Rfam assigns this 62-nucleotide RNA sequence from Rhinopithecus roxellana to the family "Gag/pol translational readthrough site". Rfam 15.1 lists 3,368 matches to the family in 94 species. On this family, see ten Dam et al., Virus Genes 1990: "RNA pseudoknots: translational frameshifting and readthrough on viral RNAs".

[Rfam]
RNA sequence: UAGGGGAGACGGGGUUCGGAUCCCCUCCCCGAACCUAGGGUAACCUUACAAGUGGAGGGGUC
Numbered sequence: 001u002a003g004g005g006g007a008g009a010c011g012g013g014g015u016u017c018g019g020a021u022c023c024c025c026u027c028c029c030c031g032a033a034c035c036u037a038g039g040g041u042a043a044c045c046u047u048a049c050a051a052g053u054g055g056a057g058g059g060g061u062c
Stems, first nucleotide, its partner, number of pairs: 008041001010039001012036004016031001018029002022060006